[Rfam]
RNA sequence: GCGUAGGCUUAGUCGAGUGGUUACUUCGUUGCUUCGACUUUUAAUCGAUACCUUUAUUGACCACUGAUGCUGUCCUACGUUUUG
Numbered sequence: 001g002c003g004u005a006g007g008c009u010u011a012g013u014c015g016a017g018u019g020g021u022u023a024c025u026u027c028g029u030u031g032c033u034u035c036g037a038c039u040u041u042u043a044a045u046c047g048a049u050a051c052c053u054u055u056a057u058u059g060a061c062c063a064c065u066g067a068u069g070c071u072g073u074c075c076u077a078c079g080u081u082u083u084g
Stems, first nucleotide, its partner, number of pairs: 002079006012068004017064004026048003